Annotation
A member of the RNA family "Small nucleolar RNA SNORD73" from Cebus imitator, 67 nucleotides long. The source organism's lineage runs through Eukaryota, Metazoa, Craniata, Primates and Cebus.
RNA sequence: AAUAAGUGAUGAAAAAAGUUUCGGUCCCAGAUGAUGGCCAGUGAUAAACUUAACGUUUUCUGAUGUU
Number, nucleotide and partner (000 for none) at each position: 001a067002a066003u065004a064005a000006g000007u000008g000009a000010u000011g000012a000013a000014a000015a000016a000017a000018g000019u000020u000021u000022c000023g000024g000025u000026c000027c000028c000029a000030g000031a000032u000033g000034a000035u000036g000037g000038c000039c000040a000041g000042u000043g000044a000045u000046a000047a000048a000049c000050u000051u000052a000053a000054c000055g000056u000057u000058u000059u000060c000061u000062g000063a000064u004065g003066u002067u001

Record summary:
The literature on the family includes a 1998 paper in Gene by Rebane et al., "A novel snoRNA (U73) is encoded within the introns of the human and mouse ribosomal protein S3a genes".